The record is a 169-nucleotide RNA sequence from Digitaria exilis, which matches "MIR2118 microRNA precursor family" in Rfam. The base pairs follow the family's consensus structure, which was predicted with RNAalifold.
[Rfam]
RNA sequence: GCAUGGAAGAGGAAGAAAGAGAGGUGCUAAGAGCAUUAGGAGUGGGAACAUGAAGGAAUGCAGUGCCCUGAUUUCUUCUCUACCAUUGGAGAUGGAUAUUCAGCUUGAGGCAUUCCUGAUGCCUCCCAUUCCUAUGGUUCUUAGGUCCUCCUUCCUCUUCCUUUUGCUA
Numbered sequence: 001g002c003a004u005g006g007a008a009g010a011g012g013a014a015g016a017a018a019g020a021g022a023g024g025u026g027c028u029a030a031g032a033g034c035a036u037u038a039g040g041a042g043u044g045g046g047a048a049c050a051u052g053a054a055g056g057a058a059u060g061c062a063g064u065g066c067c068c069u070g071a072u073u074u075c076u077u078c079u080c081u082a083c084c085a086u087u088g089g090a091g092a093u094g095g096a097u098a099u100u101c102a103g104c105u106u107g108a109g110g111c112a113u114u115c116c117u118g119a120u121g122c123c124u125c126c127c128a129u130u131c132c133u134a135u136g137g138u139u140c141u142u143a144g145g146u147c148c149u150c151c152u153u154c155c156u157c158u159u160c161c162u163u164u165u166g167c168u169a
Stems, first nucleotide, its partner, number of pairs: 009160005015154003021150003027144008037134011049121003053117001055116007